[Rfam]
RNA: small nucleolar RNA snoR114
RNA sequence: GGGCAAUGAAGAAAUGCUAAUGUGACAGAUGGGGUCUGUCACAAUCAUCUGAAUUUGAAGAUGAUAAAUUGCAGAGCUGAGCUC
Numbered sequence: 001g002g003g004c005a006a007u008g009a010a011g012a013a014a015u016g017c018u019a020a021u022g023u024g025a026c027a028g029a030u031g032g033g034g035u036c037u038g039u040c041a042c043a044a045u046c047a048u049c050u051g052a053a054u055u056u057g058a059a060g061a062u063g064a065u066a067a068a069u070u071g072c073a074g075a076g077c078u079g080a081g082c083u084c
Stems, first nucleotide, its partner, number of pairs: 001084004